[Rfam]
Record summary
This 249-nucleotide RNA from Talaromyces marneffei belongs to the Rfam family "Small nucleolar RNA snR191". The source organism's lineage runs through Eukaryota, Fungi, saccharomyceta, Trichocomaceae and Talaromyces marneffei. By type it is an H/ACA-box small nucleolar RNA.
RNA sequence: UGCCAUUGCUAAGUCAAGGCUUCUUCCUGUGCAUUUUCUUGCCGCUCAAUGGGAGUUUUGUCUGUUACAGCUUUGGUAGAUUGAUACUCAUCCGCCGCUCUAUCUCUUUCUGAGUUUAGAGUUGAUCGGUUUUCGUUUUGAAGGCUUAUCGUAAAGGAUGAGCAGUGCUUUGUUUUUGAGUUGAGCUCUGAAUACCGUCAUUCGAAGGUACCUUCUGUAUCAGAGCUCUUAGUAACAUUUCACACAUUG
Numbered sequence: 001u002g003c004c005a006u007u008g009c010u011a012a013g014u015c016a017a018g019g020c021u022u023c024u025u026c027c028u029g030u031g032c033a034u035u036u037u038c039u040u041g042c043c044g045c046u047c048a049a050u051g052g053g054a055g056u057u058u059u060g061u062c063u064g065u066u067a068c069a070g071c072u073u074u075g076g077u078a079g080a081u082u083g084a085u086a087c088u089c090a091u092c093c094g095c096c097g098c099u100c101u102a103u104c105u106c107u108u109u110c111u112g113a114g115u116u117u118a119g120a121g122u123u124g125a126u127c128g129g130u131u132u133u134c135g136u137u138u139u140g141a142a143g144g145c146u147u148a149u150c151g152u153a154a155a156g157g158a159u160g161a162g163c164a165g166u167g168c169u170u171u172g173u174u175u176u177u178g179a180g181u182u183g184a185g186c187u188c189u190g191a192a193u194a195c196c197g198u199c200a201u202u203c204g205a206a207g208g209u210a211c212c213u214u215c216u217g218u219a220u221c222a223g224a225g226c227u228c229u230u231a232g233u234a235a236c237a238u239u240u241c242a243c244a245c246a247u248u249g
Stems, first nucleotide, its partner, number of pairs: 003076003017063004023055005031042003087162006096124001097122006104114003129145007165243003171237003183228004189222003195208002197203001
About this RNA
Rfam links the family to the GO terms nucleolus and RNA processing.